[Rfam]
RNA sequence: AGGUCACUUCAAAGAGAGCUUGUGGGACCAAAACCAGGAGCUCUUAACACGGUAACCCAACAUUGAAGUUCUUCAUAGGAGGUGACAAACACUCAUUGUCCUGUUUUCCUGAGGAGAUACACGA
Numbered sequence: 001a002g003g004u005c006a007c008u009u010c011a012a013a014g015a016g017a018g019c020u021u022g023u024g025g026g027a028c029c030a031a032a033a034c035c036a037g038g039a040g041c042u043c044u045u046a047a048c049a050c051g052g053u054a055a056c057c058c059a060a061c062a063u064u065g066a067a068g069u070u071c072u073u074c075a076u077a078g079g080a081g082g083u084g085a086c087a088a089a090c091a092c093u094c095a096u097u098g099u100c101c102u103g104u105u106u107u108c109c110u111g112a113g114g115a116g117a118u119a120c121a122c123g124a
Stems, first nucleotide, its partner, number of pairs: 002057003006053002014045008023037001026035001070117005077110004085102001088099001090098002
Dot-bracket structure: .(((.((......((((((((.(..(........).)))))))))......)).)))............(((((..((((....(..(.((.....)))..)....))))..))))).......
Small nucleolar RNA SNORA25: a 124-nucleotide RNA sequence from Molossus molossus. The family has 30 seed sequences and 1,129 matches in Rfam 15.1. It scores 94 bits against the family's covariance model. The source organism's lineage runs through Eukaryota, Craniata, Gnathostomata, Chiroptera and Molossus. Rfam's curators write: ACA25 is a member of the H/ACA class of snoRNA that guide the sites of modification of uridines to pseudouridines.